The record is a 260-nucleotide part of an RNA from uncultured Chloroflexi bacterium HF0200_09I09, which matches "Bacterial large subunit ribosomal RNA" in Rfam. The organism belongs to Chloroflexota, within Bacteria.
RNA sequence: GGAGGCUUGAGGAAUGCUGCCCCUAGUACGAGAGGACCGGGGUGGACGGACCUCUGGUGUGCCGGUUGUCCCGCCAGGGGCAUCGCCGGGUAGCCAAGUCCGGAAUGGAUAAGCGCUGAAAGCAUCUAAGCGCGAAGCCAAUUCCAAGAUGAGGCCUCCCACCGGGUUAACCGGGUAAGACCGCGGGAAGACCACCCGCUUGAUAGGCUACAGGUGGAAGCACAGCAAUGUGUGGAGCUGAGUAGUACUAAUGGUCGAGG
Numbered sequence: 001g002g003a004g005g006c007u008u009g010a011g012g013a014a015u016g017c018u019g020c021c022c023c024u025a026g027u028a029c030g031a032g033a034g035g036a037c038c039g040g041g042g043u044g045g046a047c048g049g050a051c052c053u054c055u056g057g058u059g060u061g062c063c064g065g066u067u068g069u070c071c072c073g074c075c076a077g078g079g080g081c082a083u084c085g086c087c088g089g090g091u092a093g094c095c096a097a098g099u100c101c102g103g104a105a106u107g108g109a110u111a112a113g114c115g116c117u118g119a120a121a122g123c124a125u126c127u128a129a130g131c132g133c134g135a136a137g138c139c140a141a142u143u144c145c146a147a148g149a150u151g152a153g154g155c156c157u158c159c160c161a162c163c164g165g166g167u168u169a170a171c172c173g174g175g176u177a178a179g180a181c182c183g184c185g186g187g188a189a190g191a192c193c194a195c196c197c198g199c200u201u202g203a204u205a206g207g208c209u210a211c212a213g214g215u216g217g218a219a220g221c222a223c224a225g226c227a228a229u230g231u232g233u234g235g236a237g238c239u240g241a242g243u244a245g246u247a248c249u250a251a252u253g254g255u256c257g258a259g260g
Stems, first nucleotide, its partner, number of pairs: 001159008011145004017045007047102005055096003062089005067082006106140003113133005162174003176258001179256004183199005204250003207246005213239002220233005
Dot-bracket structure: ((((((((..((((..(((((((...............))))))).(((((...(((....(((((((((((....))))))..)))))....))).)))))...(((....(((((...........)))))....))).))))......))))))))..(((.......))).(..(((((((((.......)))))....((((((((.((.....(((((....)))))....))..))))).)))..)))).)..